Small nucleolar RNA SNORA77: a 128-nucleotide RNA from Nothobranchius furzeri. The base pairs follow the family's consensus structure, which was predicted with RNAalifold. Gene Ontology terms of the family: nucleolus and RNA processing. The family has 19 seed sequences and 843 matches in Rfam 15.1.

RNA sequence: GCAGACACACUCUGUUCUUUGCUGUUCACUCCAGCUUGGGACUUUUUCUGUCUGCUACAUGAACACACAGGAUGUACCAGUGCUAGCUUUACUACAGGGCUGGCGUCAGUAUGUUCUGGGACACACAC
Numbered sequence: 001g002c003a004g005a006c007a008c009a010c011u012c013u014g015u016u017c018u019u020u021g022c023u024g025u026u027c028a029c030u031c032c033a034g035c036u037u038g039g040g041a042c043u044u045u046u047u048c049u050g051u052c053u054g055c056u057a058c059a060u061g062a063a064c065a066c067a068c069a070g071g072a073u074g075u076a077c078c079a080g081u082g083c084u085a086g087c088u089u090u091a092c093u094a095c096a097g098g099g100c101u102g103g104c105g106u107c108a109g110u111a112u113g114u115u116c117u118g119g120g121a122c123a124c125a126c127a128c
Stems, first nucleotide, its partner, number of pairs: 001055006014042005022034003068118006075111003080106001083103005
From the family's description: ACA63 (SNORA77) is a member of the H/ACA class of snoRNAs that guide the sites of modification of uridines to pseudouridines. This snoRNA was identified by computational screening and its expression in mouse experimentally verified by Northern blot and primer extension analysis. ACA63 is proposed to guide the pseudouridylation of 18S rRNA U814. It is annotated as an H/ACA-box small nucleolar RNA.